[Rfam]
RNA sequence: AGAGGCCUAUGAUGAUUUGAAUUUGCCUACAUUGUCUGAUUGUCUAACAUAUGACAGAGACAUAUAAACUAGCUCUGAGGCCUCC
Numbered sequence: 001a002g003a004g005g006c007c008u009a010u011g012a013u014g015a016u017u018u019g020a021a022u023u024u025g026c027c028u029a030c031a032u033u034g035u036c037u038g039a040u041u042g043u044c045u046a047a048c049a050u051a052u053g054a055c056a057g058a059g060a061c062a063u064a065u066a067a068a069c070u071a072g073c074u075c076u077g078a079g080g081c082c083u084c085c
Stems, first nucleotide, its partner, number of pairs: 002084001004082004
This 85-nucleotide RNA from Populus trichocarpa belongs to the Rfam family "Small nucleolar RNA SNORD34". NCBI's taxonomy places the organism under Eukaryota, Embryophyta, Magnoliopsida, eudicotyledons, Populus. The family's consensus secondary structure was predicted with PFOLD. From the family's description: snoRNA U34 is found in intron 5 of the ribosomal protein L13a gene in humans. The match comes from Rfam's covariance-model search (46 bits). The family's RNA type in Rfam is C/D-box small nucleolar RNA.